[Rfam]
The family of this 140-nucleotide sequence from Sphingomonas parapaucimobilis is "ALIL pseudoknot". Rfam 15.1 lists 2,146 matches to the family in 1,098 species. Rfam links the family to the GO term positive regulation of translational frameshifting. The source organism's lineage runs through Bacteria, Pseudomonadota, Alphaproteobacteria, Sphingomonas and Sphingomonas parapaucimobilis.
RNA sequence: GGCAUAUUUCGCGAUGGCGGAGCUCGACCGCCCCGGGCGAUGACGAAGCCUGCCCUGAGCGUGUCGAAGGGGCGUUCAUCGACGCGCAUCGAGAGGAGUUGGGGAUCGAGCCGAUCUGCCGGGAACUGGCGGUCGCCCCC
Numbered sequence: 001g002g003c004a005u006a007u008u009u010c011g012c013g014a015u016g017g018c019g020g021a022g023c024u025c026g027a028c029c030g031c032c033c034c035g036g037g038c039g040a041u042g043a044c045g046a047a048g049c050c051u052g053c054c055c056u057g058a059g060c061g062u063g064u065c066g067a068a069g070g071g072g073c074g075u076u077c078a079u080c081g082a083c084g085c086g087c088a089u090c091g092a093g094a095g096g097a098g099u100u101g102g103g104g105a106u107c108g109a110g111c112c113g114a115u116c117u118g119c120c121g122g123g124a125a126c127u128g129g130c131g132g133u134c135g136c137c138c139c140c
Base pairs, nucleotide, nucleotide: 016054017053018052019051020050101140102139103138104137112135113134115132116131119128121126